[Rfam]
RNA sequence: GUAGAUGCUCAUUCCACCUCUUAUGUUCGCUUCGGCUUCAUAAACCAGGAAUGAUGCAGAGCCAAAUUAGGGUACCCGUUGUCCAGCCAGCCAAUAUCGUUCGCCUUAUUGGAUUUAAGGGCACUACGUUGAGUCGGGUACCAAUCCGGUUGUCUUACCGACCUGAUCUUUACACCUGCCUGCUUUAGGCAGGUGUUUUUUU
Numbered sequence: 001g002u003a004g005a006u007g008c009u010c011a012u013u014c015c016a017c018c019u020c021u022u023a024u025g026u027u028c029g030c031u032u033c034g035g036c037u038u039c040a041u042a043a044a045c046c047a048g049g050a051a052u053g054a055u056g057c058a059g060a061g062c063c064a065a066a067u068u069a070g071g072g073u074a075c076c077c078g079u080u081g082u083c084c085a086g087c088c089a090g091c092c093a094a095u096a097u098c099g100u101u102c103g104c105c106u107u108a109u110u111g112g113a114u115u116u117a118a119g120g121g122c123a124c125u126a127c128g129u130u131g132a133g134u135c136g137g138g139u140a141c142c143a144a145u146c147c148g149g150u151u152g153u154c155u156u157a158c159c160g161a162c163c164u165g166a167u168c169u170u171u172a173c174a175c176c177u178g179c180c181u182g183c184u185u186u187a188g189g190c191a192g193g194u195g196u197u198u199u200u201u202u
Base pairs, nucleotide, nucleotide: 001062002061006058007057008056009054010053011052012051015049017048019042027035029033071142072141073140074139075138076137077136081122082121083120084119093110094109095108096107152162153161154160172196173195174194175193176192177191178190179189180188181187
GlmZ RNA activator of glmS mRNA: a 202-nucleotide RNA from Pantoea alhagi. It is annotated as a small RNA. NCBI's taxonomy places the organism under Bacteria, Pseudomonadati, Pseudomonadota, Gammaproteobacteria, Pantoea. From the family's description: This RNA was discovered in E. coli during a large scale screen. The sraJ gene was expressed in early logarithmic phase, but its level decreased with cell growth. Specific cleavage products of this RNA were found. The family's consensus secondary structure is taken from published work.